[Rfam]
RNA sequence: UGCCGGUUCUCCAUCAACCGGCGCGGGCUACCGAAGAGGCUUGUCCUUCAUUGCCGGGCGUGCGGACGGGGUCUCCCCUUCCAAUCCAAGGCAGCUAUUUCGGGUUUCGUUGACCGCCGUCGCGCGCCUCCAUCGCGUGCUUCGG
Numbered sequence: 001u002g003c004c005g006g007u008u009c010u011c012c013a014u015c016a017a018c019c020g021g022c023g024c025g026g027g028c029u030a031c032c033g034a035a036g037a038g039g040c041u042u043g044u045c046c047u048u049c050a051u052u053g054c055c056g057g058g059c060g061u062g063c064g065g066a067c068g069g070g071g072u073c074u075c076c077c078c079u080u081c082c083a084a085u086c087c088a089a090g091g092c093a094g095c096u097a098u099u100u101c102g103g104g105u106u107u108c109g110u111u112g113a114c115c116g117c118c119g120u121c122g123c124g125c126g127c128c129u130c131c132a133u134c135g136c137g138u139g140c141u142u143c144g145g
Stems, first nucleotide, its partner, number of pairs: 001023008038055003062140001063137002086104002112121003

The record is a 145-nucleotide sequence, which matches "speF leader" in Rfam.
It is annotated as a cis-regulatory leader.
The family's consensus secondary structure was predicted with RNAalifold.
Its family is annotated with regulation of gene expression in the Gene Ontology.
Rfam describes the family as follows. This family is a putative regulatory RNA structure that is found upstream of the speF gene encoding ornithine decarboxylase in Agrobacterium tumefaciens and other alpha-proteobacteria.
A search with the family's covariance model found it, with a score of 65 bits.